[Rfam]
RNA sequence: GCGCCCUUACCUCCGCCCACUCGGUCGCCACGUGGCGGCCGAGCGAGGGCCUCGGGGUAACGC
Numbered sequence: 001g002c003g004c005c006c007u008u009a010c011c012u013c014c015g016c017c018c019a020c021u022c023g024g025u026c027g028c029c030a031c032g033u034g035g036c037g038g039c040c041g042a043g044c045g046a047g048g049g050c051c052u053c054g055g056g057g058u059a060a061c062g063c
Stems, first nucleotide, its partner, number of pairs: 001061001005057004015050004020043006028035002

Shown here is a 63-nucleotide RNA from Oryza nivara, a member of the family "MIR2907 microRNA precursor family".
A search with the family's covariance model found it, with a score of 70 bits.
The literature on the family includes a 2010 paper in Genomics by Jian et al., "Identification of novel stress-regulated microRNAs from Oryza sativa L".